[Rfam]
RNA sequence: AAAGCGCCCUACAUUGAAAGGAGAUGCUGCUCCAUCAUGGCCCCGAGUCAUGCGCGGGUGGUCGCGAGGUUGCACGUGAAGCGUUGACAGGGGGAAACGCAGGCCAACUAUUGAGCUCCGAAAUCACCCAUCCGGGGUGCCGACCCAGUGGUCUGAAGGGGAAGGCAAUACGCUGUGGCAACGGUAGAAAGCGAGUCGUGCAACGGUCCUGCAGAGUAUAGGACCC
Number, nucleotide and partner (000 for none) at each position: 001a000002a000003a000004g000005c000006g000007c000008c000009c000010u000011a000012c039013a038014u000015u037016g036017a035018a000019a000020g033021g032022a031023g030024a000025u193026g192027c000028u191029g000030c023031u022032c021033c020034a000035u017036c016037a015038u013039g012040g000041c093042c092043c091044c090045g000046a000047g088048u087049c086050a085051u083052g082053c078054g077055c076056g075057g000058g073059u072060g071061g070062u069063c068064g000065c000066g000067a000068g063069g062070u061071u060072g059073c058074a000075c056076g055077u054078g053079a000080a000081g000082c052083g051084u000085u050086g049087a048088c047089a000090g044091g043092g042093g041094g000095a000096a000097a000098c000099g000100c000101a000102g000103g000104c000105c000106a000107a000108c000109u000110a000111u000112u220113g000114a000115g217116c216117u215118c214119c000120g212121a000122a000123a000124u000125c000126a000127c000128c000129c000130a000131u000132c000133c211134g210135g209136g208137g207138u206139g166140c165141c164142g000143a000144c160145c159146c158147a000148g000149u000150g000151g000152u000153c000154u000155g000156a000157a000158g146159g145160g144161g000162a000163a000164g141165g140166c139167a000168a000169u000170a000171c205172g204173c000174u202175g201176u200177g000178g199179c198180a000181a196182c195183g000184g000185u000186a000187g000188a000189a000190a000191g028192c026193g025194a000195g182196u181197c000198g179199u178200g176201c175202a174203a000204c172205g171206g138207u137208c136209c135210u134211g133212c120213a000214g118215a117216g116217u115218a000219u000220a112221g000222g000223a000224c000225c000226c000